Mesorhizobail RNA 36: a 92-nucleotide sequence from Mesorhizobium amorphae.
RNA sequence: GCGGAUGGAUUAGGUUUCUCGCAAAAGGCAAGGUUUCAACCAUGUACAAGGCCGUCGGAUCGCGCGGGUCCCGGGUCAGCCGCGUGCUCUGG
Numbered sequence: 001g002c003g004g005a006u007g008g009a010u011u012a013g014g015u016u017u018c019u020c021g022c023a024a025a026a027g028g029c030a031a032g033g034u035u036u037c038a039a040c041c042a043u044g045u046a047c048a049a050g051g052c053c054g055u056c057g058g059a060u061c062g063c064g065c066g067g068g069u070c071c072c073g074g075g076u077c078a079g080c081c082g083c084g085u086g087c088u089c090u091g092g
Stems, first nucleotide, its partner, number of pairs: 002058001004056005010050002016046001018044001021041001026036003063091002066088002070084001072082003
NCBI's taxonomy places the organism under Bacteria, Pseudomonadati, Pseudomonadota, Hyphomicrobiales, Mesorhizobium amorphae. Rfam's curators write: Existence predicted via genome wide comparisons with 4 related strains. Analysed further by deep sequencing and Northern blot under various stress conditions. Strong signals in response to variety of stimuli. On this family, see Fuli et al., Front Microbiol 2017: "A Genome-Wide Prediction and Identification of Intergenic Small RNAs by Comparative Analysis in Mesorhizobium huakuii 7653R". Rfam classes the family as a small RNA.